Annotation
Shown here is a 122-nucleotide RNA, a member of the family "Apolipoprotein B (apoB) 5' UTR cis-regulatory element". For this family Rfam cites "Translational control of apolipoprotein B mRNA: regulation via cis elements in the 5' and 3' untranslated regions" (Pontrelli et al., Biochemistry, 2004). Rfam's curators write: This family represents an apolipoprotein B (apoB) cis regulatory element located in the 5' UTR of apoB mRNA. The element is important for optimal translation. It is one of the family's seed sequences.

RNA sequence: AUUCCCACCGGGACCUGCGGGGCUGAGUGCCCUUCUCGGUUGCUGCCGCUGAGGAGCCCGCCCAGCCAGCCAGGGCCGCGAGGCCGAGGCCAGGCCGCAGCCCAGGAGCCGCCCCACCGCAG
Numbered sequence: 001a002u003u004c005c006c007a008c009c010g011g012g013a014c015c016u017g018c019g020g021g022g023c024u025g026a027g028u029g030c031c032c033u034u035c036u037c038g039g040u041u042g043c044u045g046c047c048g049c050u051g052a053g054g055a056g057c058c059c060g061c062c063c064a065g066c067c068a069g070c071c072a073g074g075g076c077c078g079c080g081a082g083g084c085c086g087a088g089g090c091c092a093g094g095c096c097g098c099a100g101c102c103c104a105g106g107a108g109c110c111g112c113c114c115c116a117c118c119g120c121a122g
Base pairs, nucleotide, nucleotide: 003013004012005011006010016099017098018097019096020095021067022066023065024064025063027061028060029059032056033055034054035053036052037051038050039049040048069090070089071088074085075084076083077082102122111120112119
Pairs were carried over by alignment from the consensus structure, which is taken from published work.